[Rfam]
RNA: Gammaprotebacteria rimP leader
RNA sequence: UACCGUAAGGUAACAGUCAGGGUCCAGGUGAAUAGCCCCGAUUUGAAGAUCGGGGCUUUUUGUUAUCUGCACUUUAGCGCCAUUAAAGGCGCACAUUCACUGGGCUGCGAGCCCUUUUUUU
Numbered sequence: 001u002a003c004c005g006u007a008a009g010g011u012a013a014c015a016g017u018c019a020g021g022g023u024c025c026a027g028g029u030g031a032a033u034a035g036c037c038c039c040g041a042u043u044u045g046a047a048g049a050u051c052g053g054g055g056c057u058u059u060u061u062g063u064u065a066u067c068u069g070c071a072c073u074u075u076a077g078c079g080c081c082a083u084u085a086a087a088g089g090c091g092c093a094c095a096u097u098c099a100c101u102g103g104g105c106u107g108c109g110a111g112c113c114c115u116u117u118u119u120u121u
Base pairs, nucleotide, nucleotide: 032059034057035056036055037054038053039052040051041050042049102114103113104112105111